This 86-nucleotide RNA sequence from Triticum turgidum belongs to the Rfam family "MIR1120/MIR1122 microRNA precursor family". A reference for the family is Yao et al. (2007), "Cloning and characterization of microRNAs from wheat (Triticum aestivum L.)", Genome Biol. Its family is annotated with RISC complex and miRNA-mediated post-transcriptional gene silencing in the Gene Ontology. The base pairs follow the family's consensus structure, which was predicted with RNAalifold. Lineage of the source: Eukaryota > Embryophyta > commelinids > Triticeae > Triticum turgidum.
[Rfam]
RNA sequence: GUGUUCCCUCCGUCUCAUAAUAUAAGAGCGUUUUUGACACUAGUGUAGUGUAAAAAUGCUCUUAUAUUAUGAGACGGAGGGAGUAG
Dot-bracket structure: ..(((.(((((.(((((.(((((((((((((((((.(((((.....)))))))))))))))))))))).))))).))))).)))..